[Rfam]
Nucleotides: 087
Stems, first nucleotide, its partner, number of pairs: 001086021024063012037050002040047001
Number, partner (000 for none) and nucleotide at each position: 001086c002085a003084u004083g005082u006081c007080a008079g009078u010077g011076c012075g013074c014073u015072u016071u017070g018069c019068u020067g021066a022000c023000a024063u025062g026061g027060c028059a029058g030057c031056a032055a033054a034053u035052c036000u037050c038049a039000u040047c041000c042000u043000a044000g045000a046000a047040g048000g049038u050037g051000c052035g053034a054033u055032u056031u057030g058029u059028u060027g061026c062025c063024a064000c065000g066021u067020c068019a069018g070017c071016a072015a073014a074013g075012c076011g077010c078009g079008c080007u081006g082005a083004c084003g085002u086001g087000g
The family of this 87-nucleotide RNA from Gossypium schwendimanii is "MIR7486 microRNA precursor family".
The base pairs follow the family's consensus structure, which was predicted with RNAalifold.
The family has 9 seed sequences and 10,132 matches in Rfam 15.1.
Rfam links the family to the GO terms miRNA-mediated post-transcriptional gene silencing and RISC complex.